[Rfam]
SAM (S-adenosyl methionine) riboswitch aptamer: a 111-nucleotide sequence from Luteimicrobium xylanilyticum. The source organism's lineage runs through Bacteria, Bacillati, Actinomycetota, Actinomycetes and Luteimicrobium. The base pairs follow the family's consensus structure, which is taken from published work. Rfam links the family to the GO terms S-adenosylmethionine metabolic process and regulation of gene expression. The match comes from Rfam's covariance-model search (79 bits).

RNA sequence: GGUCAUGAGUUCCAGCCCCUCGGCCCCGGCCGGCUGGACGGCAACCCCGCUCCGCGGCGGGGUGCCCCGGGUGAUGACCUGGCCCGUCCCCGUGACGGGCAACCAGCGCGA
Numbered sequence: 001g002g003u004c005a006u007g008a009g010u011u012c013c014a015g016c017c018c019c020u021c022g023g024c025c026c027c028g029g030c031c032g033g034c035u036g037g038a039c040g041g042c043a044a045c046c047c048c049g050c051u052c053c054g055c056g057g058c059g060g061g062g063u064g065c066c067c068c069g070g071g072u073g074a075u076g077a078c079c080u081g082g083c084c085c086g087u088c089c090c091c092g093u094g095a096c097g098g099g100c101a102a103c104c105a106g107c108g109c110g111a
Stems, first nucleotide, its partner, number of pairs: 001079004009039001011038006022031002040066003045062003050056001082100007